[Rfam]
RNA sequence: CGGACCUUGAUAUGUCUAGUAUUCUAGGUUUCGCCCUUUUAUUGGCAUGCGAACCAGUUUAUUAGAUAUAUCGACGUCCGG
Number, nucleotide and partner (000 for none) at each position: 001c000002g000003g000004a000005c000006c000007u000008u073009g072010a071011u070012a069013u068014g067015u066016c065017u064018a063019g062020u061021a060022u000023u000024c000025u000026a000027g000028g055029u000030u053031u052032c051033g050034c049035c000036c000037u000038u000039u000040u000041a000042u000043u000044g000045g000046c000047a000048u000049g034050c033051g032052a031053a030054c000055c028056a000057g000058u000059u000060u021061a020062u019063u018064a017065g016066a015067u014068a013069u012070a011071u010072c009073g008074a000075c000076g000077u000078c000079c000080g000081g000

Record summary
mir-50 microRNA precursor family: an 81-nucleotide sequence from Caenorhabditis japonica. The family is grouped with related families in Rfam's "mir-50 clan". On this family, see Lau et al., Science 2001: "An abundant class of tiny RNAs with probable regulatory roles in Caenorhabditis elegans". The organism belongs to Caenorhabditis, within Eukaryota. The match comes from Rfam's covariance-model search (50 bits). The family has 7 seed sequences and 65 matches in Rfam 15.1.